[Rfam]
Shown here is a 73-nucleotide sequence from Zea mays, a member of the family "tRNA". The base pairs follow the family's consensus structure, which is taken from published work. About the family: Transfer RNA (tRNA) molecules are approximately 80 nucleotides in length. Their secondary structure includes four short double-helical elements and three loops (D, anti-codon, and T loops). Further hydrogen bonds mediate the characteristic L-shaped molecular structure. tRNAs have two regions of fundamental functional importance: the anti-codon, which is responsible for specific mRNA codon recognition, and the 3' end, to which the tRNAs corresponding amino acid is attached (by aminoacyl-tRNA synthetases). tRNAs cope with the degeneracy of the genetic code in two manners: having more than one tRNA (with a specific anti-codon) for a particular amino acid; and 'wobble' base-pairing, i.e. permitting non-standard base-pairing at the 3rd anti-codon position. The family's RNA type in Rfam is transfer RNA. NCBI's taxonomy places the organism under Eukaryota, Embryophyta, Magnoliopsida, Tripsacinae, Zea.
RNA sequence: GCCCACUUAGCUCAGAGGUUAGAGCAUCGCAUUUGUAAUGCGAGGGUCAUCGGUUCAAAUCCGAUAGUCGGCU
Numbered sequence: 001g002c003c004c005a006c007u008u009a010g011c012u013c014a015g016a017g018g019u020u021a022g023a024g025c026a027u028c029g030c031a032u033u034u035g036u037a038a039u040g041c042g043a044g045g046g047u048c049a050u051c052g053g054u055u056c057a058a059a060u061c062c063g064a065u066a067g068u069c070g071g072c073u
Stems, first nucleotide, its partner, number of pairs: 001072003005068003010025004027043005049065005